[Rfam]
RNA: Glycine riboswitch aptamer
RNA sequence: AUGAACGUACGGGGAGAGAACGUGGAAGCGUCGCCGAAGGAGCAAGUAACGGAAGUUAUGAAUCUCUCAGGCAAAAAGACUCGUACGGGACG
Number, nucleotide and partner (000 for none) at each position: 001a000002u000003g000004a000005a000006c087007g086008u085009a084010c083011g082012g081013g080014g000015a000016g000017a000018g000019a000020a031021c030022g029023u028024g000025g000026a000027a000028g023029c022030g021031u020032c000033g072034c071035c070036g068037a067038a000039g000040g066041a065042g064043c000044a000045a000046g059047u058048a057049a056050c055051g000052g000053a000054a000055g050056u049057u048058a047059u046060g000061a000062a000063u000064c042065u041066c040067u037068c036069a000070g035071g034072c033073a000074a000075a000076a000077a000078g000079a000080c013081u012082c011083g010084u009085a008086c007087g006088g000089g000090a000091c000092g000